[Rfam]
RNA sequence: CCAUGCAUUACUGGGCAAGUCUCCUUUGGCAAUGACCUCGUCAAACAACCCACCACUGCCAAAGAAGACUUGCCCAGCGAUGCAGCU
Numbered sequence: 001c002c003a004u005g006c007a008u009u010a011c012u013g014g015g016c017a018a019g020u021c022u023c024c025u026u027u028g029g030c031a032a033u034g035a036c037c038u039c040g041u042c043a044a045a046c047a048a049c050c051c052a053c054c055a056c057u058g059c060c061a062a063a064g065a066a067g068a069c070u071u072g073c074c075c076a077g078c079g080a081u082g083c084a085g086c087u
Base pairs, nucleotide, nucleotide: 005083006082007081008080009079011077012076013075014074015073016072017071018070019069021067022066024064027061028060029059030058031057033055034054
Rfam assigns this 87-nucleotide RNA from Aegilops tauschii to the family "mir-399 microRNA precursor family". The base pairs follow the family's consensus structure, which was predicted with PFOLD. The organism belongs to Aegilops tauschii, within Eukaryota. From the family's description: mir-399 was identified in both Arabidopsis thaliana and Oryza sativa computationally and was later experimentally verified. mir-399 is thought to target mRNAs coding for a phosphatase transporter. The mature sequence is excised from the 3' arm of the hairpin. Its family is annotated with miRNA-mediated post-transcriptional gene silencing and RISC complex in the Gene Ontology. The family has 13 seed sequences and 2,396 matches in Rfam 15.1.